Shown here is a 155-nucleotide RNA sequence from Thermoanaerobacterium thermosaccharolyticum, a member of the family "glmS glucosamine-6-phosphate activated ribozyme aptamer". By type it is a riboswitch. Rfam's curators write: This entry contains a glucosamine-6-phosphate activated ribozyme that is found in the mRNA for GlmS. GlmS is an enzyme that uses fructose-6-phosphate and glutamine to generate glucosamine-6-phosphate. The ribozyme catalyses self cleavage of the glmS mRNA that is thought to regulate GlmS activity.

RNA sequence: AACUGAAUAAAAGCGCCUGGGCUUAGAGGAAACUCUAAGUUGACGAGGACAGGGUUUAUCGAGUUAUCGGCGGAUGCCCUGCGGUCUCCUGCGAUCGAUAAAAAACCGGGAAAACCAUGGGUGACCAUUGGCAUAGAGCGGUUUGAGCAGGGAAA
Number, nucleotide and partner (000 for none) at each position: 001a000002a000003c000004u000005g000006a000007a000008u000009a000010a000011a000012a000013g000014c000015g000016c000017c000018u000019g000020g041021g040022c039023u038024u037025a036026g035027a034028g000029g000030a000031a000032a000033c000034u027035c026036u025037a024038a023039g022040u021041u020042g000043a000044c000045g000046a000047g000048g000049a000050c081051a080052g079053g078054g077055u000056u000057u000058a000059u070060c069061g068062a067063g000064u000065u000066a000067u062068c061069g060070g059071c000072g000073g000074a000075u000076g000077c054078c053079c052080u051081g050082c097083g096084g095085u094086c093087u000088c000089c000090u000091g000092c000093g086094a085095u084096c083097g082098a000099u000100a000101a000102a000103a144104a143105a142106c141107c140108g139109g000110g000111a000112a000113a000114a000115c131116c130117a128118u127119g126120g125121g000122u000123g000124a000125c120126c119127a118128u117129u000130g116131g115132c000133a000134u000135a000136g000137a000138g000139c108140g107141g106142u105143u104144u103145g000146a000147g000148c000149a000150g000151g000152g000153a000154a000155a000